[Rfam]
A member of the RNA family "SAM riboswitch aptamer (S box leader)" from Oceanobacillus iheyensis, 106 nucleotides long.
RNA sequence: GACUUAUCAAGAGAGAUGGAGGGAUUGGCCCGAUGAAGUCUCAGCAACCAGCCUAGAUAAGGUAUGGUGCUAAUUCCAAUAGGCUUACAAGCCUUAAAGAUAAGAA
Numbered sequence: 001g002a003c004u005u006a007u008c009a010a011g012a013g014a015g016a017u018g019g020a021g022g023g024a025u026u027g028g029c030c031c032g033a034u035g036a037a038g039u040c041u042c043a044g045c046a047a048c049c050a051g052c053c054u055a056g057a058u059a060a061g062g063u064a065u066g067g068u069g070c071u072a073a074u075u076c077c078a079a080u081a082g083g084c085u086u087a088c089a090a091g092c093c094u095u096a097a098a099g100a101u102a103a104g105a106a
Base pairs, nucleotide, nucleotide: 003104004103005102006101007100008099013042014041015040016039017038021031022030023029025079026078027077028076043071044070045069046068048067049066050063052062053061075098081094082093083092084091